Rfam assigns this 163-nucleotide RNA from Xenorhabdus koppenhoeferi to the family "SraG RNA".
The organism belongs to Xenorhabdus, within Bacteria.
The family's RNA type in Rfam is small RNA.
About the family: This RNA was discovered in E. coli during a large scale screen. Evidence was found for specific cleavage of this RNA.
The literature on the family includes a 2001 paper in Curr Biol by Argaman et al., "Novel small RNA-encoding genes in the intergenic regions of Escherichia coli".
The match comes from Rfam's covariance-model search (107 bits).
RNA sequence: CUUCUUGCUACACCCUCACGACUAAUGACAGUUCUUACUCUUUUAAGGACUCUCAUUAGCCGCGCGAGUCACUGCAGCGGAAGAAGUUCAAACUUUAGAAACGAAUAUGACGUCUGUUAAUUCGGUUUUCUAGAAGAAAAGGGGCCCGAUUAGGCCCCUUUUC
Numbered sequence: 001c002u003u004c005u006u007g008c009u010a011c012a013c014c015c016u017c018a019c020g021a022c023u024a025a026u027g028a029c030a031g032u033u034c035u036u037a038c039u040c041u042u043u044u045a046a047g048g049a050c051u052c053u054c055a056u057u058a059g060c061c062g063c064g065c066g067a068g069u070c071a072c073u074g075c076a077g078c079g080g081a082a083g084a085a086g087u088u089c090a091a092a093c094u095u096u097a098g099a100a101a102c103g104a105a106u107a108u109g110a111c112g113u114c115u116g117u118u119a120a121u122u123c124g125g126u127u128u129u130c131u132a133g134a135a136g137a138a139a140a141g142g143g144g145c146c147c148g149a150u151u152a153g154g155c156c157c158c159u160u161u162u163c
Stems, first nucleotide, its partner, number of pairs: 001083004006079002011074002017066001019064002022059007089116002141158006